Background:
The record is a 130-nucleotide RNA sequence from Frankliniella occidentalis, which matches "Small Cajal body specific RNA 8" in Rfam. From the family's description: scaRNAs are a specific class of small nuclear RNAs which localise to the Cajal bodies and guide the modification of RNA polymerase II transcribed spliceosomal RNAs U1, U2, U4, U5 and U12. U92 belong to the H/ACA box class of guide RNAs as it has the predicted hairpin-hinge-hairpin-tail structure, conserved H/ACA-box motifs and is found associated with GAR1. Taxonomically the source falls in Frankliniella (Eukaryota, Metazoa, Altocrustacea, Terebrantia). The literature on the family includes a 2002 paper in EMBO J by Darzacq et al., "Cajal body-specific small nuclear RNAs: a novel class of 2'-O-methylation and pseudouridylation guide RNAs".
RNA sequence: UGGGAUUUGAUACGUGAGACUUCUGUCAGAAUUUGAGGUCUCACCACUAAUAAUCCCUAGAUCAUGAUUGCUCUCUGAUGACUGCAGUCGUUAAAGAUGUUGUCUGCAGACAGAUACGGAGCCCACAGAG
Numbered sequence: 001u002g003g004g005a006u007u008u009g010a011u012a013c014g015u016g017a018g019a020c021u022u023c024u025g026u027c028a029g030a031a032u033u034u035g036a037g038g039u040c041u042c043a044c045c046a047c048u049a050a051u052a053a054u055c056c057c058u059a060g061a062u063c064a065u066g067a068u069u070g071c072u073c074u075c076u077g078a079u080g081a082c083u084g085c086a087g088u089c090g091u092u093a094a095a096g097a098u099g100u101u102g103u104c105u106g107c108a109g110a111c112a113g114a115u116a117c118g119g120a121g122c123c124c125a126c127a128g129a130g
Base pairs, nucleotide, nucleotide: 002057003056004055005054006053007052014044015043016042017041021037022036023035070122071121072120073119074118082109083108084107087104089102090101